[Rfam]
Yersinia sRNA 276: a 195-nucleotide RNA sequence from Chania multitudinisentens. The base pairs follow the family's consensus structure, which was predicted with RNAfold. A search with the family's covariance model found it, with a score of 188 bits. NCBI's taxonomy places the organism under Bacteria, Enterobacterales, Yersiniaceae, Chania, Chania multitudinisentens. It is annotated as an antisense RNA.
RNA sequence: CACGGACAUCAGUGAUUCGUUUUGUGAACCCGCGCCGACGGCCAGAUAAGCAUUCAUUCCCAGCUCUUUCAUCUGCUGUUCGCCGAUGACGCGGGUGGUGAUGUUGCUACUGAAGGCAUCUGCCAACUGGCGCGCCUGAGAUGCCAGAUAACCGGCAUUGCAGAUGUUUGGCGGCAUGUUGCCCAGGUCUUUGGC
Numbered sequence: 001c002a003c004g005g006a007c008a009u010c011a012g013u014g015a016u017u018c019g020u021u022u023u024g025u026g027a028a029c030c031c032g033c034g035c036c037g038a039c040g041g042c043c044a045g046a047u048a049a050g051c052a053u054u055c056a057u058u059c060c061c062a063g064c065u066c067u068u069u070c071a072u073c074u075g076c077u078g079u080u081c082g083c084c085g086a087u088g089a090c091g092c093g094g095g096u097g098g099u100g101a102u103g104u105u106g107c108u109a110c111u112g113a114a115g116g117c118a119u120c121u122g123c124c125a126a127c128u129g130g131c132g133c134g135c136c137u138g139a140g141a142u143g144c145c146a147g148a149u150a151a152c153c154g155g156c157a158u159u160g161c162a163g164a165u166g167u168u169u170g171g172c173g174g175c176a177u178g179u180u181g182c183c184c185a186g187g188u189c190u191u192u193g194g195c
Stems, first nucleotide, its partner, number of pairs: 005189003014030001016028005034042002050059001062077003078135002081132005087126001091123007099112002102109002136163003140159006167186002170183003
Dot-bracket structure: ....(((......(.(((((...))))).)...((.....)).......(........)..(((..........)))((.(((((.(...(((((((.((.((....)).))....)))))))..).))))).))(((.((((((........)))))).)))...((.(((........))).)))))......